[Rfam]
RNA sequence: UAGAAGAAUUUAGAAAGAGAGUUCUUUUUCUUAAUCUCAUGAAGACUUUGGUCUUAUUGUAAUUGUAUAGGAGUUUUUGAACUAAAAAAGGAGCAAUAACGCCCUCUUGAUAAAACAAGAGGGAAGCUAUUGCUCCUUU
Numbered sequence: 001u002a003g004a005a006g007a008a009u010u011u012a013g014a015a016a017g018a019g020a021g022u023u024c025u026u027u028u029u030c031u032u033a034a035u036c037u038c039a040u041g042a043a044g045a046c047u048u049u050g051g052u053c054u055u056a057u058u059g060u061a062a063u064u065g066u067a068u069a070g071g072a073g074u075u076u077u078u079g080a081a082c083u084a085a086a087a088a089a090g091g092a093g094c095a096a097u098a099a100c101g102c103c104c105u106c107u108u109g110a111u112a113a114a115a116c117a118a119g120a121g122g123g124a125a126g127c128u129a130u131u132g133c134u135c136c137u138u139u
Stems, first nucleotide, its partner, number of pairs: 008040001087139012102123001104121005
Source information: Plastid-psbA-1 3UTR RNA: a 139-nucleotide sequence from Lactuca sativa. Rfam classes the family as a cis-regulatory element. From the family's description: Plastid psbA-1 is a non-coding RNA (ncRNA) present in plastids. It was identified in inverted repeat sequences in the 3 prime untranslate region (3UTR) of photosystem II quinone-binding protein (psbA). Taxonomically the source falls in Lactuca (Eukaryota, Magnoliopsida, Gunneridae, Pentapetalae). On this family, see Richter et al., Plant Commun 2023: "Retrograde signaling in plants: A critical review focusing on the GUN pathway and beyond". The base pairs follow the family's consensus structure, which was predicted with LocARNA.